This 130-nucleotide sequence from Ursus americanus belongs to the Rfam family "Small nucleolar RNA SNORA22". The base pairs follow the family's consensus structure, which was predicted with RNAfold. Its family is annotated with nucleolus and RNA processing in the Gene Ontology. Lineage of the source: Eukaryota > Eumetazoa > Deuterostomia > Ursidae > Ursus. Rfam classes the family as an H/ACA-box small nucleolar RNA.
[Rfam]
RNA sequence: ACCUACGUGACCCAAGUGUGCUUUAGAGUUCCCUUGGUUUUGAUUCUGUGCUAGAGCAAUGUCUAUUCUUUUCCUCUGCAUUGAAAGGACUAUUUAUCCUUUUAAAUGUAUUCAAAAAGUCAGCACAUUC
Numbered sequence: 001a002c003c004u005a006c007g008u009g010a011c012c013c014a015a016g017u018g019u020g021c022u023u024u025a026g027a028g029u030u031c032c033c034u035u036g037g038u039u040u041u042g043a044u045u046c047u048g049u050g051c052u053a054g055a056g057c058a059a060u061g062u063c064u065a066u067u068c069u070u071u072u073c074c075u076c077u078g079c080a081u082u083g084a085a086a087g088g089a090c091u092a093u094u095u096a097u098c099c100u101u102u103u104a105a106a107u108g109u110a111u112u113c114a115a116a117a118a119g120u121c122a123g124c125a126c127a128u129u130c
Base pairs, nucleotide, nucleotide: 001049002048010041012037013036014035015034016033018031020029021028022027053069054068055067056066058064075116077114078113079108080107081106082105083103084102085101086100087099088098089097
Rfam 15.1 lists 883 matches to the family in 606 species. ACA22 is a member of the H/ACA class of snoRNA that guide the sites of modification of uridines to pseudouridines.